This 69-nucleotide RNA from Sus scrofa belongs to the Rfam family "Small nucleolar RNA SNORD2". The match comes from Rfam's covariance-model search (72 bits). The family has 17 seed sequences and 1,116 matches in Rfam 15.1.
RNA sequence: UAGUGAAAUGAUGGCAAUCUUCUCUCAGAAUUGACCUGAGAUGAAGAAAAUACUCAUUGCUGGUCAUUU
Number, nucleotide and partner (000 for none) at each position: 001u000002a068003g067004u066005g065006a064007a000008a000009u000010g000011a000012u000013g000014g000015c000016a000017a000018u000019c000020u000021u000022c000023u000024c000025u000026c000027a000028g000029a000030a000031u000032u000033g000034a000035c000036c000037u000038g000039a000040g000041a000042u000043g000044a000045a000046g000047a000048a000049a000050a000051u000052a000053c000054u000055c000056a000057u000058u000059g000060c000061u000062g000063g000064u006065c005066a004067u003068u002069u000

A reference for the family is Zhou et al. (2004), "Identification of a novel box C/D snoRNA from mouse nucleolar cDNA library", Gene.